[Rfam]
RNA sequence: AGCCUAACCCUUAUAAUUUAUAAGGUAUGGUAAUAAAACCCCGUCUAAGGUAUCAAGCUCCUCGUCAGAGCACCUUAGACGGGUCAUGUUGGGAAACUGAUAUGGGUAGCCCGAAAGGGUCUAUC
Numbered sequence: 001a002g003c004c005u006a007a008c009c010c011u012u013a014u015a016a017u018u019u020a021u022a023a024g025g026u027a028u029g030g031u032a033a034u035a036a037a038a039c040c041c042c043g044u045c046u047a048a049g050g051u052a053u054c055a056a057g058c059u060c061c062u063c064g065u066c067a068g069a070g071c072a073c074c075u076u077a078g079a080c081g082g083g084u085c086a087u088g089u090u091g092g093g094a095a096a097c098u099g100a101u102a103u104g105g106g107u108a109g110c111c112c113g114a115a116a117g118g119g120u121c122u123a124u125c
Stems, first nucleotide, its partner, number of pairs: 002031003009025007040083011057071004085104008105125005
A member of the RNA family "LOOT RNA", 125 nucleotides long. It is annotated as a small RNA.